[Rfam]
This 64-nucleotide RNA sequence belongs to the Rfam family "pemK RNA". Pairs were carried over by alignment from the consensus structure, which is taken from published work.
RNA sequence: AAAAAGGUACUUCUGUAACACGCAGCCCGGCCGCAGAGAAGGCGGGUGGCUGAAACGCCAAUGG
Numbered sequence: 001a002a003a004a005a006g007g008u009a010c011u012u013c014u015g016u017a018a019c020a021c022g023c024a025g026c027c028c029g030g031c032c033g034c035a036g037a038g039a040a041g042g043c044g045g046g047u048g049g050c051u052g053a054a055a056c057g058c059c060a061a062u063g064g
Base pairs, nucleotide, nucleotide: 012061013025014024015023016022026046027045028044030043031042032041047060048059049058
Rfam classes the family as a cis-regulatory element.